The family of this 107-nucleotide RNA sequence is "SAM riboswitch aptamer (S box leader)". The family's consensus secondary structure is taken from published work.
[Rfam]
RNA sequence: UUCUUAUCAAGAGAGACGGAGGGAUCGGCCCGAUGAAGUCUCAGCAACCAGCUCAAUCAGUAUGGUGCUAAUUCCUUUUGGCAAAAUCUAAGCCUGAAAGAUGAGAA
Numbered sequence: 001u002u003c004u005u006a007u008c009a010a011g012a013g014a015g016a017c018g019g020a021g022g023g024a025u026c027g028g029c030c031c032g033a034u035g036a037a038g039u040c041u042c043a044g045c046a047a048c049c050a051g052c053u054c055a056a057u058c059a060g061u062a063u064g065g066u067g068c069u070a071a072u073u074c075c076u077u078u079u080g081g082c083a084a085a086a087u088c089u090a091a092g093c094c095u096g097a098a099a100g101a102u103g104a105g106a107a
Stems, first nucleotide, its partner, number of pairs: 001107008013042005021031003027075002043069004048065002050061001073099001078096001080094003
It is one of the family's seed sequences.